Small nucleolar RNA SNORD60: an 84-nucleotide RNA from Acipenser ruthenus.
It is annotated as a C/D-box small nucleolar RNA.
For this family Rfam cites "Purified box C/D snoRNPs are able to reproduce site-specific 2'-O-methylation of target RNA in vitro" (Galardi et al., Mol Cell Biol, 2002).
The family has 22 seed sequences and 825 matches in Rfam 15.1.
Its family is annotated with RNA processing and nucleolus in the Gene Ontology.
The match comes from Rfam's covariance-model search (66 bits).
Clan: SNORD60 clan.
[Rfam]
RNA sequence: UGCCGGUGAUGAUUUUUAACAUUUCUGACACCUCAAAUGAGUGCUGCUAAUGCAGUAGUUGAUUACACUUUUAAUCUGAGGCAC
Numbered sequence: 001u002g003c004c005g006g007u008g009a010u011g012a013u014u015u016u017u018a019a020c021a022u023u024u025c026u027g028a029c030a031c032c033u034c035a036a037a038u039g040a041g042u043g044c045u046g047c048u049a050a051u052g053c054a055g056u057a058g059u060u061g062a063u064u065a066c067a068c069u070u071u072u073a074a075u076c077u078g079a080g081g082c083a084c
Base pairs, nucleotide, nucleotide: 001083002082003081004080043056044055045054046053047052